RNA: Flavivirus capsid hairpin cHP
RNA sequence: ACUAAAAAACCAGGAGGGCCCGGUAAAAACCGGGCUAUCAAUAUG
Numbered sequence: 001a002c003u004a005a006a007a008a009a010c011c012a013g014g015a016g017g018g019c020c021c022g023g024u025a026a027a028a029a030c031c032g033g034g035c036u037a038u039c040a041a042u043a044u045g
Stems, first nucleotide, its partner, number of pairs: 014039002017036006